[Rfam]
This 99-nucleotide RNA from Streptococcus pneumoniae belongs to the Rfam family "Streptococcus sRNA SpF43".
For this family Rfam cites "Control of virulence by small RNAs in Streptococcus pneumoniae" (Mann et al., PLoS Pathog, 2012).
Lineage of the source: Bacteria > Bacillota > Lactobacillales > Streptococcus > Streptococcus pneumoniae.
RNA sequence: AUUAAUACUUGGAGAGGUAAGUGACAUGAACAACUAAGUCUAUCUCAAAUAAAGAACCUUUAUUUAGUAGAUCUUGUUUUUGUCUUUUUGUGUGCUCUU
Numbered sequence: 001a002u003u004a005a006u007a008c009u010u011g012g013a014g015a016g017g018u019a020a021g022u023g024a025c026a027u028g029a030a031c032a033a034c035u036a037a038g039u040c041u042a043u044c045u046c047a048a049a050u051a052a053a054g055a056a057c058c059u060u061u062a063u064u065u066a067g068u069a070g071a072u073c074u075u076g077u078u079u080u081u082g083u084c085u086u087u088u089u090g091u092g093u094g095c096u097c098u099u
Base pairs, nucleotide, nucleotide: 011098012097013096014095017089019087020086021085023084024083025082026081028079029078030077031076032075033074038072039071040070041069042068043067047065048064049063050062051061052060053059054058